Description
The family of this 117-nucleotide sequence from Thalassobium sp. R2A62 is "ALIL pseudoknot". The family has 26 seed sequences and 2,146 matches in Rfam 15.1. The literature on the family includes a 2008 paper in J Biol Chem by Mazauric et al., "Apical loop-internal loop RNA pseudoknots: a new type of stimulator of -1 translational frameshifting in bacteria". The sequence is in the family's curated seed alignment. By type it is a cis-regulatory element. The family's consensus secondary structure is taken from published work. Gene Ontology term of the family: positive regulation of translational frameshifting.

[Rfam]
RNA sequence: AGCGUAUUUUGCUCAGGCGGAGCUCGACCGCCCGUUUCGGAAGUGAUCAGCUUUAUCAAAGAGCAUCGUGAUGUCUGCGGGGUCGAGCCGAUUUGUCGUGUUUUGCAGAUUGCCCCU
Numbered sequence: 001a002g003c004g005u006a007u008u009u010u011g012c013u014c015a016g017g018c019g020g021a022g023c024u025c026g027a028c029c030g031c032c033c034g035u036u037u038c039g040g041a042a043g044u045g046a047u048c049a050g051c052u053u054u055a056u057c058a059a060a061g062a063g064c065a066u067c068g069u070g071a072u073g074u075c076u077g078c079g080g081g082g083u084c085g086a087g088c089c090g091a092u093u094u095g096u097c098g099u100g101u102u103u104u105g106c107a108g109a110u111u112g113c114c115c116c117u
Base pairs, nucleotide, nucleotide: 016032017031018030019029020028079116080115081114082113089112090111092109093108094107095106096105098103